[Rfam]
RNA sequence: AAGUAAGGAACAGCGACUAAGGACGCUACGUCCGCAUAUCUUCGUCGCUGUGACUCUCGUCCUGAGAG
Numbered sequence: 001a002a003g004u005a006a007g008g009a010a011c012a013g014c015g016a017c018u019a020a021g022g023a024c025g026c027u028a029c030g031u032c033c034g035c036a037u038a039u040c041u042u043c044g045u046c047g048c049u050g051u052g053a054c055u056c057u058c059g060u061c062c063u064g065a066g067a068g
Base pairs, nucleotide, nucleotide: 011050012049013048014047015046016045017044025040027038028037054068055067056066057065058064
RNA: Bacillaceae-1 RNA